[Rfam]
RNA sequence: UUCACCUUUAAUGGCAGUCCUGAGAGGCUGAGAAGGUACAUGUGAAGCGACGAAUGAUUUGUGCUGCAAAUCUUUACGUACGCGCUAUUUCCACACGCGAACUUUCCAAAUCCUCUAGAGACAAUCUAGAGGAUUUUUUAUUU
Numbered sequence: 001u002u003c004a005c006c007u008u009u010a011a012u013g014g015c016a017g018u019c020c021u022g023a024g025a026g027g028c029u030g031a032g033a034a035g036g037u038a039c040a041u042g043u044g045a046a047g048c049g050a051c052g053a054a055u056g057a058u059u060u061g062u063g064c065u066g067c068a069a070a071u072c073u074u075u076a077c078g079u080a081c082g083c084g085c086u087a088u089u090u091c092c093a094c095a096c097g098c099g100a101a102c103u104u105u106c107c108a109a110a111u112c113c114u115c116u117a118g119a120g121a122c123a124a125u126c127u128a129g130a131g132g133a134u135u136u137u138u139u140a141u142u143u
Stems, first nucleotide, its partner, number of pairs: 004037006015030005040071002043068002046065004052059002108136012

Overview
Shown here is a 143-nucleotide sequence from Lysinibacillus odysseyi, a member of the family "PyrR binding site". Rfam classes the family as a cis-regulatory element. The base pairs follow the family's consensus structure, which is taken from published work. From the family's description: This family represents the PyrR binding site and terminator structure. This RNA structure is found upstream of a variety of genes involved in pyrimidine biosynthesis and transport. The alignment also includes a portion of the antiterminator structure. Lineage of the source: Bacteria > Caryophanales > Bacillaceae > Lysinibacillus > Lysinibacillus odysseyi. A reference for the family is Bonner et al. (2001), "Molecular recognition of pyr mRNA by the Bacillus subtilis attenuation regulatory protein PyrR", Nucleic Acids Res.